Rfam assigns this 60-nucleotide part of an RNA from Chrysochloris asiatica to the family "Eukaryotic large subunit ribosomal RNA".

RNA sequence: CUCUGAGGUAAGCCUUGAAACCUAAGGCGUAGGCCAGGUGGAGCCGCCGCAGGUGCAGAU
Numbered sequence: 001c002u003c004u005g006a007g008g009u010a011a012g013c014c015u016u017g018a019a020a021c022c023u024a025a026g027g028c029g030u031a032g033g034c035c036a037g038g039u040g041g042a043g044c045c046g047c048c049g050c051a052g053g054u055g056c057a058g059a060u
Stems, first nucleotide, its partner, number of pairs: 001055001003052003007048003012044002020039002026035003
The family's consensus secondary structure is taken from published work.